[Rfam]
Nucleotides: 178
Stems, first nucleotide, its partner, number of pairs: 136175006144169005
Number, partner (000 for none) and nucleotide at each position: 001000a002000g003000u004000a005000a006000c007000c008000a009000a010000a011000u012000a013000u014000a015000a016000u017000g018000c019000u020000u021000g022000g023000a024000u025000c026000g027000a028000g029000a030000g031000u032000g033000g034000g035000a036000u037000u038000g039000c040000u041000u042000a043000u044000u045000a046000a047000u048000c049000g050000g051000a052000c053000g054000u055000u056000a057000c058000c059000a060000a061000g062000a063000u064000u065000a066000g067000c068000a069000u070000c071000a072000u073000a074000a075000a076000u077000u078000c079000c080000a081000c082000c083000a084000a085000a086000g087000a088000a089000c090000a091000u092000c093000g094000c095000u096000u097000u098000u099000a100000a101000c102000a103000c104000c105000a106000a107000a108000a109000g110000a111000a112000a113000u114000g115000c116000a117000c118000c119000u120000a121000a122000a123000c124000c125000u126000a127000a128000a129000a130000c131000a132000a133000u134000c135000a136175a137174a138173u139172g140171g141170u142000u143000g144169c145168c146167u147166a148165a149000a150000a151000u152000a153000a154000a155000a156000c157000c158000u159000a160000a161000c162000u163000u164000u165148u166147u167146g168145g169144g170141a171140u172139c173138g174137u175136u176000c177000c178000a

The family of this 178-nucleotide sequence from Rivularia sp. PCC 7116 is "Antisense RNA which regulates isiA expression". The family's consensus secondary structure was predicted with PFOLD. Taxonomically the source falls in Rivularia (Bacteria, Cyanobacteriota, Cyanophyceae, Rivulariaceae). A search with the family's covariance model found it, with a score of 143 bits.